[Rfam]
RNA sequence: UUUUACAAGGGGAAUGAAUGUCUCCCCGGGAUUUUCCCAAACCGCUUAUUAAGCUGAUGACUUCUGUGAUGAG
Dot-bracket structure: .........[[[[..(((.(((]]]].................(((.....)))....)))))).........